Notes: A member of the RNA family "RtT RNA" from Sodalis ligni, 127 nucleotides long. The organism belongs to Sodalis, within Bacteria. On this family, see Bosl and Kersten, Nucleic Acids Res 1991: "A novel RNA product of the tyrT operon of Escherichia coli". The base pairs follow the family's consensus structure, which is taken from published work. The family's RNA type in Rfam is cis-regulatory element. The match comes from Rfam's covariance-model search (101 bits).

[Rfam]
RNA sequence: AUAUCGCACGAGUCGUGCUGGAUGAGAACCUGCGCAGGUUUGAGCCGAGCGAAGCGAGACAGCGUUGCCGUAUGGCAACGACCCGAAGGGCGAGGCCAAAGGCCGAGUUAUCCUGCACGACCCACCA
Numbered sequence: 001a002u003a004u005c006g007c008a009c010g011a012g013u014c015g016u017g018c019u020g021g022a023u024g025a026g027a028a029c030c031u032g033c034g035c036a037g038g039u040u041u042g043a044g045c046c047g048a049g050c051g052a053a054g055c056g057a058g059a060c061a062g063c064g065u066u067g068c069c070g071u072a073u074g075g076c077a078a079c080g081a082c083c084c085g086a087a088g089g090g091c092g093a094g095g096c097c098a099a100a101g102g103c104c105g106a107g108u109u110a111u112c113c114u115g116c117a118c119g120a121c122c123c124a125c126c127a
Stems, first nucleotide, its partner, number of pairs: 015118004020113002023110001033092002039087004046056002063080006